[Rfam]
RNA sequence: AUGCCUUAAACUUAUAAAUGAGAAAAAUAAUGAUUUGGUAGAUGCCUGAAUCCUCACUGCUAUUGUGAGAUGAAUUUGGGGGGCAGGUUUGCCCCUAAGGUGAUCCCCCUACUUUGCAGAAUGGCAAACUAAUUCAGGCUUGU
Numbered sequence: 001a002u003g004c005c006u007u008a009a010a011c012u013u014a015u016a017a018a019u020g021a022g023a024a025a026a027a028u029a030a031u032g033a034u035u036u037g038g039u040a041g042a043u044g045c046c047u048g049a050a051u052c053c054u055c056a057c058u059g060c061u062a063u064u065g066u067g068a069g070a071u072g073a074a075u076u077u078g079g080g081g082g083g084c085a086g087g088u089u090u091g092c093c094c095c096u097a098a099g100g101u102g103a104u105c106c107c108c109c110u111a112c113u114u115u116g117c118a119g120a121a122u123g124g125c126a127a128a129c130u131a132a133u134u135c136a137g138g139c140u141u142g143u
Base pairs, nucleotide, nucleotide: 005022006021007020008019032052033051034050035049037046038045053069054068055067056066057065083143084142085141086140087139088138089137090136091135096128099125101123102122104120105119108116
U12 minor spliceosomal RNA: a 143-nucleotide RNA from Myotis myotis. Rfam 15.1 lists 2,106 matches to the family in 1,170 species. For this family Rfam cites "Pre-mRNA splicing: the discovery of a new spliceosome doubles the challenge" (Tarn and Steitz, Trends Biochem Sci, 1997). Lineage of the source: Eukaryota > Metazoa > Eumetazoa > Mammalia > Myotis. The base pairs follow the family's consensus structure. The match comes from Rfam's covariance-model search (56 bits).